[Rfam]
RNA: MIR2629 microRNA precursor family
Organism: Medicago truncatula
RNA sequence: UGCCGAAGUUAUCCUCGGUAGUUAACUGCAGCCGAUUCCAUAAUUCGGCAGUUAACUGCUGAGGGGUAU
Numbered sequence: 001u002g003c004c005g006a007a008g009u010u011a012u013c014c015u016c017g018g019u020a021g022u023u024a025a026c027u028g029c030a031g032c033c034g035a036u037u038c039c040a041u042a043a044u045u046c047g048g049c050a051g052u053u054a055a056c057u058g059c060u061g062a063g064g065g066g067u068a069u
Base pairs, nucleotide, nucleotide: 012065013064015062016061017060018059019058020057021056022055023054024053025052026051027050028049029048